[Rfam]
RNA sequence: UGCGUUCACAUUGCCAUUGUAGAAGCGUGCUCGUCGCGACCACUGCCAGCCCUUUUCAGGGCUGCAAUUCUACA
Numbered sequence: 001u002g003c004g005u006u007c008a009c010a011u012u013g014c015c016a017u018u019g020u021a022g023a024a025g026c027g028u029g030c031u032c033g034u035c036g037c038g039a040c041c042a043c044u045g046c047c048a049g050c051c052c053u054u055u056u057c058a059g060g061g062c063u064g065c066a067a068u069u070c071u072a073c074a
Stems, first nucleotide, its partner, number of pairs: 011042001013040001015038001018074007025037003047064007
RNA: Mammalian CPEB3 ribozyme
Organism: Parnassius apollo